[Rfam]
RNA: S15-Halobacteria ribosomal protein leader
RNA sequence: ACGGGAACAGCACAGCUGCAAAUCCGACCCGCCGGGGACGUUUCGCCCACGGCUUGGGAUUGUAGCAGUGC
Numbered sequence: 001a002c003g004g005g006a007a008c009a010g011c012a013c014a015g016c017u018g019c020a021a022a023u024c025c026g027a028c029c030c031g032c033c034g035g036g037g038a039c040g041u042u043u044c045g046c047c048c049a050c051g052g053c054u055u056g057g058g059a060u061u062g063u064a065g066c067a068g069u070g071c
Base pairs, nucleotide, nucleotide: 010071011070012069013068015066016065017064018063019062020061021060024058025057031053032052033051034050036048037047